[Rfam]
RNA sequence: UCCAACCUUCAGGGUAGGGUGAAAUUCCCGACCGGCGGUGAUGACGAACGCACGUCCGAGCCCGCGACUCGCCCAUGAAAGAUAUUUCGUGAGCGACUGACUUGGUGAAAAUCCAAGGCCGACGGUAAAGUCCGGAUGGGAGAAGGUGGCU
Number, nucleotide and partner (000 for none) at each position: 001u000002c000003c149004a000005a147006c146007c145008u144009u143010c142011a000012g000013g000014g000015u000016a000017g029018g028019g027020u000021g000022a000023a000024a000025u000026u000027c019028c018029c017030g000031a131032c130033c121034g120035g065036c064037g063038g062039u000040g000041a000042u000043g000044a000045c000046g000047a000048a000049c000050g000051c000052a000053c000054g000055u000056c000057c000058g000059a000060g119061c118062c038063c037064g036065c035066g000067a000068c000069u096070c095071g094072c093073c000074c000075a000076u000077g000078a000079a000080a000081g000082a000083u000084a000085u000086u000087u000088c000089g000090u000091g000092a000093g072094c071095g070096a069097c000098u000099g000100a000101c117102u116103u115104g114105g113106u000107g000108a000109a000110a000111a000112u000113c105114c104115a103116a102117g101118g061119c060120c034121g033122a000123c134124g133125g132126u000127a000128a000129a000130g032131u031132c125133c124134g123135g000136a000137u000138g000139g000140g000141a000142g010143a009144a008145g007146g006147u005148g000149g003150c000151u000